[Rfam]
RNA sequence: UUUGCCUCAAACACAAAGGUGUCAUUCCAGUGCUUGACACUGGAAUCCAGCCCUUUUACGCAGUCCCAUUAAAAACGUUGUAUUUUAACGUAGGAUUAGCUACUUUUAUACUCACCAAUUUAAUCUCUAAUCAAAAUUCCUGGAUCCCAGUGUCUGGGCACUGGGAUGACAUCCUCCCUAGUGGAUUCA
Numbered sequence: 001u002u003u004g005c006c007u008c009a010a011a012c013a014c015a016a017a018g019g020u021g022u023c024a025u026u027c028c029a030g031u032g033c034u035u036g037a038c039a040c041u042g043g044a045a046u047c048c049a050g051c052c053c054u055u056u057u058a059c060g061c062a063g064u065c066c067c068a069u070u071a072a073a074a075a076c077g078u079u080g081u082a083u084u085u086u087a088a089c090g091u092a093g094g095a096u097u098a099g100c101u102a103c104u105u106u107u108a109u110a111c112u113c114a115c116c117a118a119u120u121u122a123a124u125c126u127c128u129a130a131u132c133a134a135a136a137u138u139c140c141u142g143g144a145u146c147c148c149a150g151u152g153u154c155u156g157g158g159c160a161c162u163g164g165g166a167u168g169a170c171a172u173c174c175u176c177c178c179u180a181g182u183g184g185a186u187u188c189a
Stems, first nucleotide, its partner, number of pairs: 012183003020171016036154008045145006
Rfam assigns this 189-nucleotide RNA from Trichonephila clavata to the family "Wolbachia sRNA 46". The organism belongs to Trichonephila, within Eukaryota. The family's RNA type in Rfam is small RNA.